[Rfam]
RNA sequence: CCGAAAGGGUAAGUGGUGUCCUCAUUAAAUGCUAGUCUGCCCCCGUGGCAGGCGACACCCUCAAACUGCGGGGAACUCCUAAAGCUUCUAGGUACCAAGUCAGCGCGCGAAAGCCGCUGGCGGCCAGGUUAAUUGCCUCGGGUACGGUCAAAACCCUAGAAGAUGCUACAAUGGACAAUCCGCAUCCAAGCUCCUAAGAGACUCCGGUCUUAUGGAGAAGGUUCAGAGACUUGAUGGGGGUGGGUUUGAGCUCAUGACGUUCGUGAGAGAAACUCAGGCUUAAGGUAAAGUCCGGCUGCCAGAGAAAUCUGGUC
Numbered sequence: 001c002c003g004a005a006a007g008g009g010u011a012a013g014u015g016g017u018g019u020c021c022u023c024a025u026u027a028a029a030u031g032c033u034a035g036u037c038u039g040c041c042c043c044c045g046u047g048g049c050a051g052g053c054g055a056c057a058c059c060c061u062c063a064a065a066c067u068g069c070g071g072g073g074a075a076c077u078c079c080u081a082a083a084g085c086u087u088c089u090a091g092g093u094a095c096c097a098a099g100u101c102a103g104c105g106c107g108c109g110a111a112a113g114c115c116g117c118u119g120g121c122g123g124c125c126a127g128g129u130u131a132a133u134u135g136c137c138u139c140g141g142g143u144a145c146g147g148u149c150a151a152a153a154c155c156c157u158a159g160a161a162g163a164u165g166c167u168a169c170a171a172u173g174g175a176c177a178a179u180c181c182g183c184a185u186c187c188a189a190g191c192u193c194c195u196a197a198g199a200g201a202c203u204c205c206g207g208u209c210u211u212a213u214g215g216a217g218a219a220g221g222u223u224c225a226g227a228g229a230c231u232u233g234a235u236g237g238g239g240g241u242g243g244g245u246u247u248g249a250g251c252u253c254a255u256g257a258c259g260u261u262c263g264u265g266a267g268a269g270a271a272a273c274u275c276a277g278g279c280u281u282a283a284g285g286u287a288a289a290g291u292c293c294g295g296c297u298g299c300c301a302g303a304g305a306a307a308u309c310u311g312g313u314c
Stems, first nucleotide, its partner, number of pairs: 056242005062236002067184006077175003186221001191217004199210004226293001228292005244279007252271001299312005
RNA: Group I catalytic intron